[Rfam]
RNA: Bacterial large signal recognition particle RNA
RNA sequence: CCGCACAGCCGGGGAGUUAGCGGUGUCCUGUACCUGCAAUCCGCUAUAGCAGGGGUGAUAUCCUGCCGAGGAUUACAAACUGUGAAGCUGCCCUUUAUAAGUAGCGUUGAAGUCUGGGUCUUACGCAACAAGACCCUGUGAACCGUGUCAGGCCAGGAAUGGAGCAGCACUAAACAGGAUAUCUUGUGUGCCGUGAGGCUGCCUGGACCGAGCUGGCUGUAGAGGUACCGUUUGUGGUGCGUUUUUCGAAGCAGGAUGUGCGG
Numbered sequence: 001c002c003g004c005a006c007a008g009c010c011g012g013g014g015a016g017u018u019a020g021c022g023g024u025g026u027c028c029u030g031u032a033c034c035u036g037c038a039a040u041c042c043g044c045u046a047u048a049g050c051a052g053g054g055g056u057g058a059u060a061u062c063c064u065g066c067c068g069a070g071g072a073u074u075a076c077a078a079a080c081u082g083u084g085a086a087g088c089u090g091c092c093c094u095u096u097a098u099a100a101g102u103a104g105c106g107u108u109g110a111a112g113u114c115u116g117g118g119u120c121u122u123a124c125g126c127a128a129c130a131a132g133a134c135c136c137u138g139u140g141a142a143c144c145g146u147g148u149c150a151g152g153c154c155a156g157g158a159a160u161g162g163a164g165c166a167g168c169a170c171u172a173a174a175c176a177g178g179a180u181a182u183c184u185u186g187u188g189u190g191c192c193g194u195g196a197g198g199c200u201g202c203c204u205g206g207a208c209c210g211a212g213c214u215g216g217c218u219g220u221a222g223a224g225g226u227a228c229c230g231u232u233u234g235u236g237g238u239g240c241g242u243u244u245u246u247c248g249a250a251g252c253a254g255g256a257u258g259u260g261c262g263g
Base pairs, nucleotide, nucleotide: 001263002262003261004260005259006258007257008056009055010054011029012028013027014026016024017023018022033053034052035051036050037049061256062255063254064253065252066251070247071246072245076241079238080237081236082235083234084233085232089227090226093224094223095222096221097220098219101217102216103214104213105212112208113207114206115205116204117203118202119201120197121196122195123194124193125192126188127187129186130185131184132183133182135178136177137176138175139174145170146169147168148167153162154161155160